[Rfam]
RNA sequence: UCCCCGAAAUGGCAAUUACUUCCGAAAGGGGUAAGCGCAAAUUAGUAGACCUAAAGCUAUCCGCUACACAUACGGUAUGGUGGCUACUGAUGCCGAA
Numbered sequence: 001u002c003c004c005c006g007a008a009a010u011g012g013c014a015a016u017u018a019c020u021u022c023c024g025a026a027a028g029g030g031g032u033a034a035g036c037g038c039a040a041a042u043u044a045g046u047a048g049a050c051c052u053a054a055a056g057c058u059a060u061c062c063g064c065u066a067c068a069c070a071u072a073c074g075g076u077a078u079g080g081u082g083g084c085u086a087c088u089g090a091u092g093c094c095g096a097a
Stems, first nucleotide, its partner, number of pairs: 012038002017033004022029002041091004046086003049081003057074001